The family of this 133-nucleotide RNA sequence from Allorhizobium borbori is "ZMP/ZTP riboswitch aptamer (pfl RNA motif)". The match comes from Rfam's covariance-model search (50 bits).

[Rfam]
RNA sequence: UCGCCGCUGCGUGACUGGCGACGAGAGCAUUCCAGCAAACGUGUGAUACGAUUUUGCGUCCGGAACGGCUCCAUAGAUGGGCAACCAUCGGGAAGCGCUGCGCCUUGCAUUGCCGCGCGCCUGGGCACCGAUC
Numbered sequence: 001u002c003g004c005c006g007c008u009g010c011g012u013g014a015c016u017g018g019c020g021a022c023g024a025g026a027g028c029a030u031u032c033c034a035g036c037a038a039a040c041g042u043g044u045g046a047u048a049c050g051a052u053u054u055u056g057c058g059u060c061c062g063g064a065a066c067g068g069c070u071c072c073a074u075a076g077a078u079g080g081g082c083a084a085c086c087a088u089c090g091g092g093a094a095g096c097g098c099u100g101c102g103c104c105u106u107g108c109a110u111u112g113c114c115g116c117g118c119g120c121c122u123g124g125g126c127a128c129c130g131a132u133c
Base pairs, nucleotide, nucleotide: 003104005102006101007100009098010097011096012095015092016091017121018120019119020118077088078087079086080085111127112126113125114124
Description
Gene Ontology terms of the family: regulation of purine nucleotide biosynthetic process and one-carbon metabolic process. Pairs were carried over by alignment from the consensus structure, which is taken from published work.